[Rfam]
RNA sequence: ACCUCUGAGCCAUCUCUCCAGCCCGAGGAUAAUUCUUUUUAAACUAUGUAUAGGGGGCUGGAGAGAUGGCUCAGUGGU
Numbered sequence: 001a002c003c004u005c006u007g008a009g010c011c012a013u014c015u016c017u018c019c020a021g022c023c024c025g026a027g028g029a030u031a032a033u034u035c036u037u038u039u040u041a042a043a044c045u046a047u048g049u050a051u052a053g054g055g056g057g058c059u060g061g062a063g064a065g066a067u068g069g070c071u072c073a074g075u076g077g078u
Stems, first nucleotide, its partner, number of pairs: 002077002005074020
This 78-nucleotide RNA from Microtus ochrogaster belongs to the Rfam family "mir-3473 microRNA precursor family". Rfam links the family to the GO terms RISC complex, cellular response to mechanical stimulus and miRNA-mediated post-transcriptional gene silencing. Pairs were carried over by alignment from the consensus structure, which was predicted with RNAalifold. Taxonomically the source falls in Microtus (Eukaryota, Sarcopterygii, Mammalia, Myomorpha).